Plastid-ndhJ 3UTR RNA: a 57-nucleotide RNA from Camphora micrantha. Rfam describes the family as follows. Plastid ndhJ is a non-coding RNA (ncRNA) present in plastids. By type it is a cis-regulatory element. A search with the family's covariance model found it, with a score of 46 bits. Pairs were carried over by alignment from the consensus structure, which was predicted with LocARNA. A reference for the family is Richter et al. (2023), "Retrograde signaling in plants: A critical review focusing on the GUN pathway and beyond", Plant Commun. The organism belongs to Camphora, within Eukaryota.

RNA sequence: UAAUGAACUUUGUACAGUGCGUAUCACUUGGGUGGGCCCCUGGAAGUCACGUAGAGG
Number, nucleotide and partner (000 for none) at each position: 001u000002a000003a000004u000005g000006a000007a000008c000009u000010u000011u000012g000013u000014a000015c000016a000017g000018u000019g037020c036021g000022u034023a033024u032025c031026a000027c000028u000029u000030g000031g025032g024033u023034g022035g000036g020037c019038c000039c000040c000041u000042g000043g000044a000045a000046g000047u000048c000049a000050c000051g000052u000053a000054g000055a000056g000057g000